[Rfam]
RNA sequence: AUGCGAUGAGUCGAUUGUGGUUUUACCACAUUUGCGCUGAGGAAGUCAUUAAGGCAGGAAGCCGAUUUUGAUAAAUUGUGUGAACCUUUUUAUCACAUCUUUCGAGAUGCCUCAACCCUCUAUUUUUAAUAGAGGGUUUUU
Dot-bracket structure: ...........(((.((((((...)))))).)))....((((((((......(((.....))).))))(((((((.............)))))))((((......))))))))..(((((((((...))))))))).....
Numbered sequence: 001a002u003g004c005g006a007u008g009a010g011u012c013g014a015u016u017g018u019g020g021u022u023u024u025a026c027c028a029c030a031u032u033u034g035c036g037c038u039g040a041g042g043a044a045g046u047c048a049u050u051a052a053g054g055c056a057g058g059a060a061g062c063c064g065a066u067u068u069u070g071a072u073a074a075a076u077u078g079u080g081u082g083a084a085c086c087u088u089u090u091u092a093u094c095a096c097a098u099c100u101u102u103c104g105a106g107a108u109g110c111c112u113c114a115a116c117c118c119u120c121u122a123u124u125u126u127u128a129a130u131a132g133a134g135g136g137u138u139u140u141u
Stems, first nucleotide, its partner, number of pairs: 012034003016030006039113004043068004053063003069095007096109004116136009